Rfam assigns this 77-nucleotide RNA from Cupriavidus pinatubonensis to the family "Cupriavidus-1 RNA". Lineage of the source: Bacteria > Pseudomonadati > Betaproteobacteria > Cupriavidus > Cupriavidus pinatubonensis. Rfam's curators put it in the seed alignment.

RNA sequence: AUGGCUGCCGUGAGCGGCUAAGACGCCGUCGGCCAGGCGCUGCCUGUAACCGCCAUGUGGCGAAUGCUGCAUGGCGG
Numbered sequence: 001a002u003g004g005c006u007g008c009c010g011u012g013a014g015c016g017g018c019u020a021a022g023a024c025g026c027c028g029u030c031g032g033c034c035a036g037g038c039g040c041u042g043c044c045u046g047u048a049a050c051c052g053c054c055a056u057g058u059g060g061c062g063a064a065u066g067c068u069g070c071a072u073g074g075c076g077g
Stems, first nucleotide, its partner, number of pairs: 001041001004038003007033002009014001015028004050077008059068003